RNA sequence: CGACCGGGACGGCCCGGUCGCUUCCCUGGGGCACAGCCGGGACGACCUGG
Numbered sequence: 001c002g003a004c005c006g007g008g009a010c011g012g013c014c015c016g017g018u019c020g021c022u023u024c025c026c027u028g029g030g031g032c033a034c035a036g037c038c039g040g041g042a043c044g045a046c047c048u049g050g
Base pairs, nucleotide, nucleotide: 001020002019003018004017005016006015007014008013037050038049039048040047041046
Annotation: The family of this 50-nucleotide RNA sequence from Rhizobium etli is "Guanidine-II riboswitch aptamer (mini-ykkC)". For this family Rfam cites "Identification of 22 candidate structured RNAs in bacteria using the CMfinder comparative genomics pipeline" (Weinberg et al., Nucleic Acids Res, 2007). It is one of the family's seed sequences. The family has 72 seed sequences and 1,589 matches in Rfam 15.1. Rfam describes the family as follows. Simpler in structure and has fewer highly conserved nucleotide positions than the ykkC-yxkD leader.